Shown here is a 126-nucleotide sequence, a member of the family "Glutamine riboswitch aptamer (glnA leader)".

[Rfam]
RNA sequence: UACGUUCAUCUUAAUCUGCAGGUUAAGACGGAAGUAGGGAGAUAGGAAAACCUCUUUCUUUGAUCAAAGAAAGGCAAGCUAGUACCGAAAGGGAACGAGACCGAAUAUCUACCGAAGGAACGCGUU
Numbered sequence: 001u002a003c004g005u006u007c008a009u010c011u012u013a014a015u016c017u018g019c020a021g022g023u024u025a026a027g028a029c030g031g032a033a034g035u036a037g038g039g040a041g042a043u044a045g046g047a048a049a050a051c052c053u054c055u056u057u058c059u060u061u062g063a064u065c066a067a068a069g070a071a072a073g074g075c076a077a078g079c080u081a082g083u084a085c086c087g088a089a090a091g092g093g094a095a096c097g098a099g100a101c102c103g104a105a106u107a108u109c110u111a112c113c114g115a116a117g118g119a120a121c122g123c124g125u126u
Stems, first nucleotide, its partner, number of pairs: 003122005009028008031123001037113002
Rfam's curators put it in the seed alignment. The literature on the family includes a 2011 paper in RNA Biol by Ames and Breaker, "Bacterial aptamers that selectively bind glutamine".